[Rfam]
RNA: Enterococcus sRNA 84
RNA sequence: AACCAACAACAACCUUUUUAUUUUUCAUUUUACUCCUCCAGAGUAAAAUAACUCCUUUUUUCCACUACGAAAAUUAUCGUAGUGGUUUUUUUU
Dot-bracket structure: ............................(((((((.....)))))))..............(((((((((......)))))))))........
Numbered sequence: 001a002a003c004c005a006a007c008a009a010c011a012a013c014c015u016u017u018u019u020a021u022u023u024u025u026c027a028u029u030u031u032a033c034u035c036c037u038c039c040a041g042a043g044u045a046a047a048a049u050a051a052c053u054c055c056u057u058u059u060u061u062c063c064a065c066u067a068c069g070a071a072a073a074u075u076a077u078c079g080u081a082g083u084g085g086u087u088u089u090u091u092u093u
Stems, first nucleotide, its partner, number of pairs: 029047007062085009